A member of the RNA family "t44 RNA" from Aliivibrio fischeri, 115 nucleotides long. About the family: This family consists of a number of bacterial RNA genes of between 135 and 170 bases in length. The t44 gene has been identified in several species of enteric bacteria but homologs have also been identified in Pseudomonas and Coxiella species. A search with the family's covariance model found it, with a score of 71 bits. The base pairs follow the family's consensus structure, which was predicted with LocARNA.

[Rfam]
RNA sequence: UAUACUUUUAUUUUAAAUCACACACAUACCGACACGCAGUCCGGGGUGCUCAUUUUUUUGAUUGUUUAAUCUUAAAAUAGAGUCGGAUUAUUAGCGGGGUAUGUGGAGGCUUAAC
Numbered sequence: 001u002a003u004a005c006u007u008u009u010a011u012u013u014u015a016a017a018u019c020a021c022a023c024a025c026a027u028a029c030c031g032a033c034a035c036g037c038a039g040u041c042c043g044g045g046g047u048g049c050u051c052a053u054u055u056u057u058u059u060g061a062u063u064g065u066u067u068a069a070u071c072u073u074a075a076a077a078u079a080g081a082g083u084c085g086g087a088u089u090a091u092u093a094g095c096g097g098g099g100u101a102u103g104u105g106g107a108g109g110c111u112u113a114a115c
Stems, first nucleotide, its partner, number of pairs: 023105008035096003039092001040087004048083004